[Rfam]
RNA sequence: GUAAACAAGCAGAAGCGCCCGCUUCUCACCUUGGCCGACCGUGUCGGCGGGUUCAUACGACGGAACGGAACCUUGUUGUGUUCUUUUGUCAUCGUAAGAUGUGGGCGUACUACGCCCGCAUCUUUUUUAUUUA
Numbered sequence: 001g002u003a004a005a006c007a008a009g010c011a012g013a014a015g016c017g018c019c020c021g022c023u024u025c026u027c028a029c030c031u032u033g034g035c036c037g038a039c040c041g042u043g044u045c046g047g048c049g050g051g052u053u054c055a056u057a058c059g060a061c062g063g064a065a066c067g068g069a070a071c072c073u074u075g076u077u078g079u080g081u082u083c084u085u086u087u088g089u090c091a092u093c094g095u096a097a098g099a100u101g102u103g104g105g106c107g108u109a110c111u112a113c114g115c116c117c118g119c120a121u122c123u124u125u126u127u128u129a130u131u132u133a
Stems, first nucleotide, its partner, number of pairs: 011026006028052003035047005100120009
RNA: Ribosomal protein L20 leader